[Rfam]
RNA sequence: CUCGGGGGCAGGGGGGUCCUUCAGCCUGGAUUGCGAGAGGGCGCAGGCCAGGCCAAGGUACCCCACCAGUGAUCGGG
Numbered sequence: 001c002u003c004g005g006g007g008g009c010a011g012g013g014g015g016g017u018c019c020u021u022c023a024g025c026c027u028g029g030a031u032u033g034c035g036a037g038a039g040g041g042c043g044c045a046g047g048c049c050a051g052g053c054c055a056a057g058g059u060a061c062c063c064c065a066c067c068a069g070u071g072a073u074c075g076g077g
Stems, first nucleotide, its partner, number of pairs: 003075002007070001011066001013064005019058003024053003028049002031046005
RNA: mir-9193 microRNA precursor family